[Rfam]
RNA: Bacillaceae-1 RNA
Nucleotides: 067
Stems, first nucleotide, its partner, number of pairs: 011049007025039005053067005
Number, partner (000 for none) and nucleotide at each position: 001000g002000a003000a004000a005000g006000g007000u008000g009000a010000a011049g012048u013047u014046c015045g016044a017043c018000u019000a020000a021000g022000g023000u024000c025039g026038u027037c028036a029035c030000g031000u032000c033000c034000u035029g036028u037027g038026a039025c040000u041000a042000c043017g044016u045015c046014g047013a048012a049011c050000a051000a052000c053067c054066c055065c056064a057063c058000g059000u060000c061000g062000u063057g064056u065055g066054g067053g